Nucleotides: 030
Base pairs, nucleotide, nucleotide: 009019010018011017012016
Number, partner (000 for none) and nucleotide at each position: 001000a002000u003000u004000u005000c006000a007000a008000u009019a010018c011017a012016u013000c014000u015000a016012a017011u018010g019009u020000u021000a022000u023000u024000g025000u026000u027000u028000a029000a030000c

The record is a 30-nucleotide RNA sequence from Anaerostipes sp. 494a, which matches "CRISPR RNA direct repeat element" in Rfam. The family's consensus secondary structure was predicted with WAR. The organism belongs to Anaerostipes, within Bacteria. Its family is annotated with defense response in the Gene Ontology. The match comes from Rfam's covariance-model search (41 bits).